[Rfam]
RNA sequence: GCGAGAAGGGCGUUUGGUGGAUGCCUUGGCAGUAAGAGGCGAUGAAGGACGUGAUACUCUGCGAUAAGUCAUGGGGAGCCGAGAAUAGGCUUUGAUCCAUGAAUCUCCGAAUGGGGCAACCCACCUGAUACUCGGUUAUAAUCAGCUCUGCUGUUUAUAAUUGGGUAAAACAGGUACUUAUUACCUGAAUACAUAGGGUUUUAAGAGCAAACCCGGGGAACUGAAACAUCUAAGUACCCGGAGGAAAGGAAAUCAAUGAUACUCCCCUAGUAGUGGCGAGCGAACGGGGACCAGCCGAGCCAUGAGAGUGACAAGAAUGAUCUGGAAAGAUCAGCCAUAGCGGGUGACAGCCCCGUAUUGGAAGCUCGAUUGGACGUAUUAAGUAGGGCGGGACACGUGAAAUCCUGUCUGAAGAUCGGAGGACCACCUUCGAAGGCUAAGUACUCCUUACUGACCGAUAGCGAACCAGUACCGUGAGGGAAAGGUGAAAAGCACCCCGACGAGGGGAGUGAAACAGUACCUGAAACCGAACGCCUACAAU
Dot-bracket structure: .......((((((((((.....(((..(((((((((((((......((((((........))).....(((((((..(((.......))).....)))))))...)))....(((....)))(((((.(.......................................).))))).((((..((((.........))))..)))).))...((((((.....((....))......))))).).........((...))..((((((.....((.....))....)))))..((((...(((...((((..(((...(((((......)))))..(...).(((.......)))...)))...))))...)))............((((((((.........))))))))......(((((......)))))..))))..)..)).))))))).))...............((....))....)).........((((.....)))).............).....)))))))))).....

Rfam assigns this 541-nucleotide part of an RNA from Sagittula stellata to the family "Bacterial large subunit ribosomal RNA". The sequence is in the family's curated seed alignment. Lineage of the source: Bacteria > Pseudomonadota > Rhodobacterales > Sagittula > Sagittula stellata.